RNA: Cyanobacteria transfer-messenger RNA
Organism: Anaposvirus socalone
RNA sequence: AUGCUACUAUAUACAGUGUUCAAGAGGUUGCAAAGUCUGUUGUUUUGGACAGGGGUUCGAUUCCCCUCACCUCCACUCAUGGGGGUGCCAUGGUUUCGACAGGGCAAAAAGGUUGUAAUUGUUGACGGAACAAAACCAUAGAUGCAAACACAUCUGACUCUGCUGCGAAUAACAUCGUAGCAUUCUCCCGCAGCACCGUUGCUGCCUGAAUGGGAGAUGGGGGAUAAGUUAUCCUUCUAAUCCAAUAACUCUUGGGGGUGCAAUGCCCC
Numbered sequence: 001a002u003g004c005u006a007c008u009a010u011a012u013a014c015a016g017u018g019u020u021c022a023a024g025a026g027g028u029u030g031c032a033a034a035g036u037c038u039g040u041u042g043u044u045u046u047g048g049a050c051a052g053g054g055g056u057u058c059g060a061u062u063c064c065c066c067u068c069a070c071c072u073c074c075a076c077u078c079a080u081g082g083g084g085g086u087g088c089c090a091u092g093g094u095u096u097c098g099a100c101a102g103g104g105c106a107a108a109a110a111g112g113u114u115g116u117a118a119u120u121g122u123u124g125a126c127g128g129a130a131c132a133a134a135a136c137c138a139u140a141g142a143u144g145c146a147a148a149c150a151c152a153u154c155u156g157a158c159u160c161u162g163c164u165g166c167g168a169a170u171a172a173c174a175u176c177g178u179a180g181c182a183u184u185c186u187c188c189c190g191c192a193g194c195a196c197c198g199u200u201g202c203u204g205c206c207u208g209a210a211u212g213g214g215a216g217a218u219g220g221g222g223g224a225u226a227a228g229u230u231a232u233c234c235u236u237c238u239a240a241u242c243c244a245a246u247a248a249c250u251c252u253u254g255g256g257g258g259u260g261c262a263a264u265g266c267c268c269c
Base pairs, nucleotide, nucleotide: 017022026120027119028118030116031115032114033113037111038110040107041106042105043104044103045102046101047100051067052066053065054064055063068087069086070085071084072083073082074081192203193202194201195200213242214241217238219237220236221235222234223233224232255269256268257267258266259265260264
Dot-bracket structure: ................(....)...(((.((((...((.((((((((...(((((.......)))))(((((((......)))))))............))))))))..)).)))).))).......................................................................((((....)))).........((..(.((((((.......)))))))..))............((((((...))))))